[Rfam]
Shown here is a 124-nucleotide sequence from Ruminococcaceae bacterium AF10-16, a member of the family "FMN riboswitch aptamer (RFN element)".
RNA sequence: ACUUGUCUUCGAGGCGGGGUGAAACUCCCCACCGGCGGUUACAGUCCGCAAGCGGUAUUUUUUAUCGCACGAACCGGUGAAAUUCCGGUACCGACGGUCACAGUCCGGAUGAGAGAAGAUGUGC
Numbered sequence: 001a002c003u004u005g006u007c008u009u010c011g012a013g014g015c016g017g018g019g020u021g022a023a024a025c026u027c028c029c030c031a032c033c034g035g036c037g038g039u040u041a042c043a044g045u046c047c048g049c050a051a052g053c054g055g056u057a058u059u060u061u062u063u064a065u066c067g068c069a070c071g072a073a074c075c076g077g078u079g080a081a082a083u084u085c086c087g088g089u090a091c092c093g094a095c096g097g098u099c100a101c102a103g104u105c106c107g108g109a110u111g112a113g114a115g116a117a118g119a120u121g122u123g124c
Stems, first nucleotide, its partner, number of pairs: 004121007017029003031104002033093002035049004044091002052068003073089005095107003

Its family is annotated with FMN binding in the Gene Ontology.
A search with the family's covariance model found it, with a score of 104 bits.